[Rfam]
RNA: FMN riboswitch aptamer (RFN element)
RNA sequence: UGGCACCUUCGGGGCAGGGUGAGCCCGCACCGUGAUGUGCGUGGCAAUUCCCGACCGGCGGUAUGUUCGGCGAUGACCGAACGAGCCCGCGACCCGCGCAAGCGGUGGAUCCGGUGAGAGGCCGGAGCCGACGGUAUAGUCCGGAUGGGAGAAGGUGGAG
Numbered sequence: 001u002g003g004c005a006c007c008u009u010c011g012g013g014g015c016a017g018g019g020u021g022a023g024c025c026c027g028c029a030c031c032g033u034g035a036u037g038u039g040c041g042u043g044g045c046a047a048u049u050c051c052c053g054a055c056c057g058g059c060g061g062u063a064u065g066u067u068c069g070g071c072g073a074u075g076a077c078c079g080a081a082c083g084a085g086c087c088c089g090c091g092a093c094c095c096g097c098g099c100a101a102g103c104g105g106u107g108g109a110u111c112c113g114g115u116g117a118g119a120g121g122c123c124g125g126a127g128c129c130g131a132c133g134g135u136a137u138a139g140u141c142c143g144g145a146u147g148g149g150a151g152a153a154g155g156u157g158g159a160g
Base pairs, nucleotide, nucleotide: 004157005156006155007154008153009152010151017052018051019050054140055139056130057129058090059089060088061087085128086127094105095104110126111125112124113123114122132143133142134141